[Rfam]
Shown here is an 89-nucleotide sequence from Mikania micrantha, a member of the family "Small nucleolar RNA snoR109". It is annotated as an H/ACA-box small nucleolar RNA. A reference for the family is Marker et al. (2002), "Experimental RNomics: identification of 140 candidates for small non-messenger RNAs in the plant Arabidopsis thaliana", Curr Biol. Lineage of the source: Eukaryota > Gunneridae > asterids > Asteraceae > Mikania. Rfam 15.1 lists 680 matches to the family in 220 species.
RNA sequence: CGGCUGUAGCUAAAUCAAUUCCGAAGUUUUACUGGCCGGUUGUCGUUGAUUUUCAGUCGACAAAUCUGCUUACCGAACUUCGUAUAUCU
Numbered sequence: 001c002g003g004c005u006g007u008a009g010c011u012a013a014a015u016c017a018a019u020u021c022c023g024a025a026g027u028u029u030u031a032c033u034g035g036c037c038g039g040u041u042g043u044c045g046u047u048g049a050u051u052u053u054c055a056g057u058c059g060a061c062a063a064a065u066c067u068g069c070u071u072a073c074c075g076a077a078c079u080u081c082g083u084a085u086a087u088c089u
Stems, first nucleotide, its partner, number of pairs: 022082007034070003038066004042061004